[Rfam]
Nucleotides: 090
Base pairs, nucleotide, nucleotide: 012082013081014080016078017077021073022072026067027066028065032062033061034060035059036058037057038056039055040054041053042052043051
Number, partner (000 for none) and nucleotide at each position: 001000g002000u003000u004000u005000u006000g007000c008000g009000u010000g011000a012082g013081g014080g015000a016078u017077g018000g019000c020000a021073g022072u023000g024000g025000a026067g027066c028065u029000c030000u031000u032062u033061u034060u035059a036058u037057a038056g039055c040054u041053g042052g043051c044000u045000u046000u047000u048000u049000c050000u051043g052042c053041c054040a055039g056038c057037u058036a059035u060034a061033a062032a063000a064000a065028a066027g067026c068000g069000g070000g071000a072022a073021c074000g075000u076000a077017c078016a079000g080014c081013c082012c083000g084000a085000c086000c087000c088000g089000c090000a
Flavo-1 RNA: a 90-nucleotide RNA sequence from Flavobacterium restrictum. By type it is a small RNA. The match comes from Rfam's covariance-model search (51 bits).